[Rfam]
RNA sequence: UGAUAUUGAGAGCUGAACCAUUCUGCAGCAUGGCUGCCUGUGGAUCCUCUGGGGAAAGGUAAAUGCUGCAGAAUCGUACCGUUCUUGGUAUCA
Numbered sequence: 001u002g003a004u005a006u007u008g009a010g011a012g013c014u015g016a017a018c019c020a021u022u023c024u025g026c027a028g029c030a031u032g033g034c035u036g037c038c039u040g041u042g043g044a045u046c047c048u049c050u051g052g053g054g055a056a057a058g059g060u061a062a063a064u065g066c067u068g069c070a071g072a073a074u075c076g077u078a079c080c081g082u083u084c085u086u087g088g089u090a091u092c093a
Base pairs, nucleotide, nucleotide: 001093002092003091004090005089006088007087008086009085010084011083012082013081015079017077018076020074021073022072023071024070025069026068027067028066029065030064031063035061036060037059038058039057045053046052047051
A member of the RNA family "mir-734 microRNA precursor family" from Danio rerio, 93 nucleotides long.